Rfam assigns this 109-nucleotide RNA sequence from Arachis hypogaea to the family "Plant small nucleolar RNA R71".
RNA sequence: AAAAUAUGUCCGGAGGGCAUUGUCUGGUCAGUAGCUUGAAUCUCUCCUAAGCUUCAUAGAGGGUGUCAUCAUCUUUCUGUCUGAAGGUCUGAACCUCCACCUUUAGCUU
Dot-bracket structure: ..(.((....................................................((.(..........).))...........................))..).
The base pairs follow the family's consensus structure, which was predicted with PFOLD. The match comes from Rfam's covariance-model search (41 bits).